Rfam assigns this 99-nucleotide RNA from Schinkia azotoformans to the family "Manganese Mn2+ riboswitch aptamer (yybP-ykoY)". It scores 50 bits against the family's covariance model. Rfam links the family to the GO term manganese ion binding. Rfam describes the family as follows. This RNA was originally discovered in E. coli during a large scale screen and was named SraF. The family was later found to exist upstream of related families of protein genes in many bacteria, including the the yybP and ykoK genes in B. subtilis. The specific functions of these proteins are unknown, but this structured RNA element may be involved in their genetic regulation as a riboswitch.
RNA sequence: UUCCUUUUCAAAGGGGAGUAGCGUCAGGUUUUUAACCUGAAACAAAGUCGUCAUUUCAUGGAGUGCUAUCCAUCGGCUUUGUUGACAUGAUACAUGUUU
Numbered sequence: 001u002u003c004c005u006u007u008u009c010a011a012a013g014g015g016g017a018g019u020a021g022c023g024u025c026a027g028g029u030u031u032u033u034a035a036c037c038u039g040a041a042a043c044a045a046a047g048u049c050g051u052c053a054u055u056u057c058a059u060g061g062a063g064u065g066c067u068a069u070c071c072a073u074c075g076g077c078u079u080u081g082u083u084g085a086c087a088u089g090a091u092a093c094a095u096g097u098u099u
Stems, first nucleotide, its partner, number of pairs: 025039003041083010058073005